[Rfam]
RNA: U11 spliceosomal RNA
RNA sequence: AAAAAGGGCUUCUGCCAUGUGUGGCACGGGGCGAGGCCGUGCGGUUGCCCCCACGGAAUCGACAUCAAGAGAUUUUGGAAACACAAUUUUUGUAGGUAGGGGUCACUGGUAACCGCCUGUUCUGGCGUUUAA
Numbered sequence: 001a002a003a004a005a006g007g008g009c010u011u012c013u014g015c016c017a018u019g020u021g022u023g024g025c026a027c028g029g030g031g032c033g034a035g036g037c038c039g040u041g042c043g044g045u046u047g048c049c050c051c052c053a054c055g056g057a058a059u060c061g062a063c064a065u066c067a068a069g070a071g072a073u074u075u076u077g078g079a080a081a082c083a084c085a086a087u088u089u090u091u092g093u094a095g096g097u098a099g100g101g102g103u104c105a106c107u108g109g110u111a112a113c114c115g116c117c118u119g120u121u122c123u124g125g126c127g128u129u130u131a132a
Stems, first nucleotide, its partner, number of pairs: 008082001010080003013026005028052004033048001035046004054077007100130004106125004111121003